[Rfam]
RNA sequence: AUGAUUACAAGGGGAGAGUUUACUAGGAAGAAAAGCCAUAUGCUUCUAAGUAACGCCGAAGGAGCAAGCUACAGCGAAUCUCUCAGGCAAAAAAGACUCUUGUAGGACG
Numbered sequence: 001a002u003g004a005u006u007a008c009a010a011g012g013g014g015a016g017a018g019u020u021u022a023c024u025a026g027g028a029a030g031a032a033a034a035g036c037c038a039u040a041u042g043c044u045u046c047u048a049a050g051u052a053a054c055g056c057c058g059a060a061g062g063a064g065c066a067a068g069c070u071a072c073a074g075c076g077a078a079u080c081u082c083u084c085a086g087g088c089a090a091a092a093a094a095g096a097c098u099c100u101u102g103u104a105g106g107a108c109g
Base pairs, nucleotide, nucleotide: 006104007103008102009101010100011099012098013097020053021052022051023050055088056087057086058084059083062082063081064080068075069074
RNA: Glycine riboswitch aptamer
Organism: Virgibacillus salexigens